mir-2774 microRNA precursor family: a 67-nucleotide RNA from Bombyx mori. The family's consensus secondary structure was predicted with RNAalifold. The organism belongs to Bombyx, within Eukaryota.
RNA sequence: ACAACACCUGGACUGUCAGUCUACCGAGCAAUUUCACCUGCUCAUUGAAAGAUCUUCCCAUAGUUAU
Numbered sequence: 001a002c003a004a005c006a007c008c009u010g011g012a013c014u015g016u017c018a019g020u021c022u023a024c025c026g027a028g029c030a031a032u033u034u035c036a037c038c039u040g041c042u043c044a045u046u047g048a049a050a051g052a053u054c055u056u057c058c059c060a061u062a063g064u065u066a067u
Stems, first nucleotide, its partner, number of pairs: 004064002010058003015053003020049001022047002026043004